[Rfam]
RNA sequence: AGAAUUUCGUCAGGACCUACCUCCUCCCAAGAACUGACGAAUACGGCCGGCAUUCACCUCCUCCCGAUUGCUGGCCAACAAAACGACACCCGCCGGACCUCCUCCCCGGCGGGUGUUGUCG
Numbered sequence: 001a002g003a004a005u006u007u008c009g010u011c012a013g014g015a016c017c018u019a020c021c022u023c024c025u026c027c028c029a030a031g032a033a034c035u036g037a038c039g040a041a042u043a044c045g046g047c048c049g050g051c052a053u054u055c056a057c058c059u060c061c062u063c064c065c066g067a068u069u070g071c072u073g074g075c076c077a078a079c080a081a082a083a084c085g086a087c088a089c090c091c092g093c094c095g096g097a098c099c100u101c102c103u104c105c106c107c108g109g110c111g112g113g114u115g116u117u118g119u120c121g
Stems, first nucleotide, its partner, number of pairs: 007040003011036003016031001045076008054067001086116011

Alphaproteobacterial ar14: a 121-nucleotide RNA from Allomesorhizobium alhagi. A reference for the family is Robledo et al. (2017), "A conserved alpha-proteobacterial small RNA contributes to osmoadaptation and symbiotic efficiency of rhizobia on legume roots", Environ Microbiol. From the family's description: Smr14C2 was renamed NfeR1 (Nodule Formation Efficiency RNA) highly expressed in salt stress and during the symbiotic interaction on legume roots. The organism belongs to Allomesorhizobium alhagi, within Bacteria. The match comes from Rfam's covariance-model search (84 bits).